This 87-nucleotide RNA from Bacillus sp. FJAT-27231 belongs to the Rfam family "c-di-GMP-I riboswitch aptamer". Pairs were carried over by alignment from the consensus structure, which is taken from published work. A search with the family's covariance model found it, with a score of 80 bits. The organism belongs to Bacillus, within Bacteria.
[Rfam]
RNA sequence: AAGAGUAAAAGGCAAACUUGGUGAAAGCCAGGGGCGCAAAGCUACGGACCUAAGCAGUGAAGACUGUAUGGCCGCCGGGCUGCCAUU
Numbered sequence: 001a002a003g004a005g006u007a008a009a010a011g012g013c014a015a016a017c018u019u020g021g022u023g024a025a026a027g028c029c030a031g032g033g034g035c036g037c038a039a040a041g042c043u044a045c046g047g048a049c050c051u052a053a054g055c056a057g058u059g060a061a062g063a064c065u066g067u068a069u070g071g072c073c074g075c076c077g078g079g080c081u082g083c084c085a086u087u
Stems, first nucleotide, its partner, number of pairs: 012037002017032006040081004045077003049071002055066004